[Rfam]
RNA sequence: GGAUUCCCGUCGAGUAAGAACUAGCCAUUCGCUCGUAGCGAGUCUUGGAGGGCUAAAGGUAACUUUAGUCUUUAAGCGUAGACAGUUAGGUGGCGGAUUUGCUUUACUGAUCGUUCUAUUCAUCCUGUUAAUCAUUAUAGGAUGUAGUUGUUGGAGCGGCGGUAGCGGCGGAUUCGGUUACUAAAAAAAGGGGCACUCAUAAGAGUGUCUUUUUUCUCAAUAUAAGAACU
Numbered sequence: 001g002g003a004u005u006c007c008c009g010u011c012g013a014g015u016a017a018g019a020a021c022u023a024g025c026c027a028u029u030c031g032c033u034c035g036u037a038g039c040g041a042g043u044c045u046u047g048g049a050g051g052g053c054u055a056a057a058g059g060u061a062a063c064u065u066u067a068g069u070c071u072u073u074a075a076g077c078g079u080a081g082a083c084a085g086u087u088a089g090g091u092g093g094c095g096g097a098u099u100u101g102c103u104u105u106a107c108u109g110a111u112c113g114u115u116c117u118a119u120u121c122a123u124c125c126u127g128u129u130a131a132u133c134a135u136u137a138u139a140g141g142a143u144g145u146a147g148u149u150g151u152u153g154g155a156g157c158g159g160c161g162g163u164a165g166c167g168g169c170g171g172a173u174u175c176g177g178u179u180a181c182u183a184a185a186a187a188a189a190g191g192g193g194c195a196c197u198c199a200u201a202a203g204a205g206u207g208u209c210u211u212u213u214u215u216c217u218c219a220a221u222a223u224a225a226g227a228a229c230u
Stems, first nucleotide, its partner, number of pairs: 011035004018030003022204001038086002042083004046078002048073011120224001128222001150221005155179003160176003184215008193206002
Rfam assigns this 230-nucleotide RNA from Bacillus mycoides to the family "Group II catalytic intron D1-D4-6". About the family: Group II introns are found in rRNA, tRNA and mRNA of organelles in fungi, plants and protists, and also in mRNA in bacteria.